[Rfam]
RNA: L31-Corynebacteriaceae ribosomal protein leader
RNA sequence: AUUCAGGCACGAUCCUUACGUCUAGCCGGGGCAUACCCGUUACCGGGCACGCUUUCCGAAGCUUCUGUUGUAAGGAACCGACCUGAAGUUACUACCUUGAGGGA
Numbered sequence: 001a002u003u004c005a006g007g008c009a010c011g012a013u014c015c016u017u018a019c020g021u022c023u024a025g026c027c028g029g030g031g032c033a034u035a036c037c038c039g040u041u042a043c044c045g046g047g048c049a050c051g052c053u054u055u056c057c058g059a060a061g062c063u064u065c066u067g068u069u070g071u072a073a074g075g076a077a078c079c080g081a082c083c084u085g086a087a088g089u090u091a092c093u094a095c096c097u098u099g100a101g102g103g104a
Stems, first nucleotide, its partner, number of pairs: 001089003004085004013076008